[Rfam]
RNA sequence: AAAGGAGCAAUACAAACAUUCUUGCUAGAAUAAGAAAGUGGUUAUUGCUCCUUUACUU
Numbered sequence: 001a002a003a004g005g006a007g008c009a010a011u012a013c014a015a016a017c018a019u020u021c022u023u024g025c026u027a028g029a030a031u032a033a034g035a036a037a038g039u040g041g042u043u044a045u046u047g048c049u050c051c052u053u054u055a056c057u058u
Base pairs, nucleotide, nucleotide: 001054002053003052004051005050006049007048008047009046010045011044012043013041019036020035021034022033023032024031
Rfam assigns this 58-nucleotide RNA from Gossypium klotzschianum to the family "Plastid-psbA-3 3UTR RNA". The source organism's lineage runs through Eukaryota, Streptophyta, Embryophyta, Malvaceae and Gossypium. The base pairs follow the family's consensus structure, which was predicted with LocARNA. For this family Rfam cites "Retrograde signaling in plants: A critical review focusing on the GUN pathway and beyond" (Richter et al., Plant Commun, 2023). By type it is a cis-regulatory element. Clan: Plastid-psbA 3UTR RNA clan.